[Rfam]
RNA sequence: UACUACUAUUGGCGCAAAUCCAAUAUUAGAAUUUAAGAUGAGAAAAAAUUCCCCAUUGGUAGCAAAUGUUUAUCCAUUAAGCGGGAAAAUCCUAU
Numbered sequence: 001u002a003c004u005a006c007u008a009u010u011g012g013c014g015c016a017a018a019u020c021c022a023a024u025a026u027u028a029g030a031a032u033u034u035a036a037g038a039u040g041a042g043a044a045a046a047a048a049u050u051c052c053c054c055a056u057u058g059g060u061a062g063c064a065a066a067u068g069u070u071u072a073u074c075c076a077u078u079a080a081g082c083g084g085g086a087a088a089a090u091c092c093u094a095u
Base pairs, nucleotide, nucleotide: 009023010022011021012020052085053084054083055077056076058074059073060072061071062070
The family of this 95-nucleotide RNA from Gossypium harknessii is "Plastid-rps12 3UTR RNA".
The source organism's lineage runs through Eukaryota, Spermatophyta, eudicotyledons, malvids and Gossypium.
The family's RNA type in Rfam is cis-regulatory element.
The match comes from Rfam's covariance-model search (84 bits).
The base pairs follow the family's consensus structure, which was predicted with LocARNA.
The literature on the family includes a 2023 paper in Plant Commun by Richter et al., "Retrograde signaling in plants: A critical review focusing on the GUN pathway and beyond".
Rfam describes the family as follows. Plastid rpl20 is a non-coding RNA (ncRNA) recognised in plastids. It was found in the three prime untranslated region (3UTR) of rps12 gene, its 3UTR location sugest a role in transcript maduration.